The family of this 70-nucleotide sequence from Clupea harengus is "mir-8/mir-141/mir-200 microRNA precursor family". Taxonomically the source falls in Clupea (Eukaryota, Opisthokonta, Osteoglossocephalai, Clupeiformes). For this family Rfam cites "Identification of novel genes coding for small expressed RNAs" (Lagos-Quintana et al., Science, 2001). The family is grouped with related families in Rfam's "mir-8 microRNA precursor clan". Rfam links the family to the GO terms miRNA-mediated post-transcriptional gene silencing and RISC complex. A search with the family's covariance model found it, with a score of 60 bits.
RNA sequence: GAGCGCAUCUUAUCUGACAGUGUUGGGCUGUGAUCUAAGUGAUCUAACACUGUCUGGUAAUGAUGUUCUC
Numbered sequence: 001g002a003g004c005g006c007a008u009c010u011u012a013u014c015u016g017a018c019a020g021u022g023u024u025g026g027g028c029u030g031u032g033a034u035c036u037a038a039g040u041g042a043u044c045u046a047a048c049a050c051u052g053u054c055u056g057g058u059a060a061u062g063a064u065g066u067u068c069u070c
Stems, first nucleotide, its partner, number of pairs: 002069002005066005010060005016054012
Dot-bracket structure: .((.((((((((((.((((((((((((...............)))))))))))).))))).))))).)).